[Rfam]
RNA sequence: CCAGACGGCCGGAUGGCCGCUCUCCGCGCCGGUCGCCAGGCCGGCCGUGGAGGGAGGAAAGUCCGGGCUCCACGGAAACAGGGUGCCGGGUAACGCCCGGCGGGCGCGAGCCCAGGGAAAGUGCCACAGAAAGCAGACCGCCGUGCCGCGGCACGGUCAGGGUGAAAGGGUGCGGUAAGAGCGCACCGCCGUCCCGGCAACGGGGCGGGCACGGUAAACCCCACCCGGAGCAAGACCGAAUAGGGGCGACACGGCCUCGCUUGACGAGGCCAGGCGUGUUUCCGCGCCGUCGCCCGGGUUGGUCGCGCGAGGCCCGCAGCGAUGCGGGUCCCAGAUGAAUGGCCAUCCCCCCGCCCCGGCGGGGGACAGAACCCGGCUUACAGGCCGUCUGGCGUC
Numbered sequence: 001c002c003a004g005a006c007g008g009c010c011g012g013a014u015g016g017c018c019g020c021u022c023u024c025c026g027c028g029c030c031g032g033u034c035g036c037c038a039g040g041c042c043g044g045c046c047g048u049g050g051a052g053g054g055a056g057g058a059a060a061g062u063c064c065g066g067g068c069u070c071c072a073c074g075g076a077a078a079c080a081g082g083g084u085g086c087c088g089g090g091u092a093a094c095g096c097c098c099g100g101c102g103g104g105c106g107c108g109a110g111c112c113c114a115g116g117g118a119a120a121g122u123g124c125c126a127c128a129g130a131a132a133g134c135a136g137a138c139c140g141c142c143g144u145g146c147c148g149c150g151g152c153a154c155g156g157u158c159a160g161g162g163u164g165a166a167a168g169g170g171u172g173c174g175g176u177a178a179g180a181g182c183g184c185a186c187c188g189c190c191g192u193c194c195c196g197g198c199a200a201c202g203g204g205g206c207g208g209g210c211a212c213g214g215u216a217a218a219c220c221c222c223a224c225c226c227g228g229a230g231c232a233a234g235a236c237c238g239a240a241u242a243g244g245g246g247c248g249a250c251a252c253g254g255c256c257u258c259g260c261u262u263g264a265c266g267a268g269g270c271c272a273g274g275c276g277u278g279u280u281u282c283c284g285c286g287c288c289g290u291c292g293c294c295c296g297g298g299u300u301g302g303u304c305g306c307g308c309g310a311g312g313c314c315c316g317c318a319g320c321g322a323u324g325c326g327g328g329u330c331c332c333a334g335a336u337g338a339a340u341g342g343c344c345a346u347c348c349c350c351c352c353g354c355c356c357c358g359g360c361g362g363g364g365g366a367c368a369g370a371a372c373c374c375g376g377c378u379u380a381c382a383g384g385c386c387g388u389c390u391g392g393c394g395u396c
Stems, first nucleotide, its partner, number of pairs: 001392010011381001012347007020054009059379003063376005068230004077281002081226005086100005101115001102113004116221002121219002123215003138161002140157007169187006188210001189208008234304004244295006273288005311330008

Source information
Shown here is a 396-nucleotide RNA, a member of the family "Bacterial RNase P class A". It scores 289 bits against the family's covariance model. Rfam's curators write: Ribonuclease P (RNase P) is a ubiquitous endoribonuclease, found in archaea, bacteria and eukarya as well as chloroplasts and mitochondria. Gene Ontology terms of the family: tRNA processing, ribonuclease P activity and dimeric ribonuclease P complex. The family's consensus secondary structure is taken from published work.